[Rfam]
RNA: Bacterial small signal recognition particle RNA
RNA sequence: CACGGAUCCCAUGUGGCGUCCAUCUCGUGAACUCCCCCAGGGCAGGAAUGCAGCAAGGGUCAGCGAGCUCUGACGGGUGCGUGGGGUCCCCUUUU
Numbered sequence: 001c002a003c004g005g006a007u008c009c010c011a012u013g014u015g016g017c018g019u020c021c022a023u024c025u026c027g028u029g030a031a032c033u034c035c036c037c038c039a040g041g042g043c044a045g046g047a048a049u050g051c052a053g054c055a056a057g058g059g060u061c062a063g064c065g066a067g068c069u070c071u072g073a074c075g076g077g078u079g080c081g082u083g084g085g086g087u088c089c090c091c092u093u094u095u
Stems, first nucleotide, its partner, number of pairs: 004089010014077001017075004024067005034059003042051003